The record is a 148-nucleotide RNA sequence from Stenotrophomonas tumulicola, which matches "Proteobacterial sRNA sX11" in Rfam. A search with the family's covariance model found it, with a score of 102 bits. NCBI's taxonomy places the organism under Bacteria, Pseudomonadati, Pseudomonadota, Lysobacteraceae, Stenotrophomonas. On this family, see Schmidtke et al., Nucleic Acids Res 2011: "Genome-wide transcriptome analysis of the plant pathogen Xanthomonas identifies sRNAs with putative virulence functions".

[Rfam]
RNA sequence: UCGCCAGCCGCAGUUCCCAACCGGUCCUACUCCCCAAGUGGCCAUCCCCAUGGGAGCUCAAGCUGCGGGGCCCUGAGCAAGCCCUACCGCUGGCGUUCUGAACGACACAGGCCUGGUCCGCAAUGGACCAGGCCUGUGUUUUUUCAUG
Dot-bracket structure: .(((((((.((((((....(..((((((........)).)))).).((....))......)))))).((((.........))))....)))))))........(((((((((((((((((...)))))))))))))))))........